Overview:
Rfam assigns this 75-nucleotide RNA sequence from Pogonomyrmex barbatus to the family "mir-980 microRNA precursor family". Rfam links the family to the GO terms miRNA-mediated post-transcriptional gene silencing and RISC complex. It scores 62 bits against the family's covariance model.
[Rfam]
RNA sequence: AUUACGCUGCGGCUCGUCAUCGGGCACUUUGCUUUUCUUUUAUGCAAGCUGCCUUUUGAAGGGCAACACUGUGAU
Numbered sequence: 001a002u003u004a005c006g007c008u009g010c011g012g013c014u015c016g017u018c019a020u021c022g023g024g025c026a027c028u029u030u031g032c033u034u035u036u037c038u039u040u041u042a043u044g045c046a047a048g049c050u051g052c053c054u055u056u057u058g059a060a061g062g063g064c065a066a067c068a069c070u071g072u073g074a075u
Stems, first nucleotide, its partner, number of pairs: 004072003008068002012064004017059003023053002028048005